[Rfam]
RNA sequence: GUCGCUGCCGUCUCUGAUUCGCUUGGUGCAGGUCGGGACCGGGCUCGAUUUUUGCCCGCCGGCGAGCUGGAUCCCGCCUUGCAUCAACUGAAUCCGAGCCGGAACGCGACG
Numbered sequence: 001g002u003c004g005c006u007g008c009c010g011u012c013u014c015u016g017a018u019u020c021g022c023u024u025g026g027u028g029c030a031g032g033u034c035g036g037g038a039c040c041g042g043g044c045u046c047g048a049u050u051u052u053u054g055c056c057c058g059c060c061g062g063c064g065a066g067c068u069g070g071a072u073c074c075c076g077c078c079u080u081g082c083a084u085c086a087a088c089u090g091a092a093u094c095c096g097a098g099c100c101g102g103a104a105c106g107c108g109a110c111g
Base pairs, nucleotide, nucleotide: 013097014096017093018092019091020090023087024086025085026084027083028082029081030080031079032078034076035075036074037073038072040070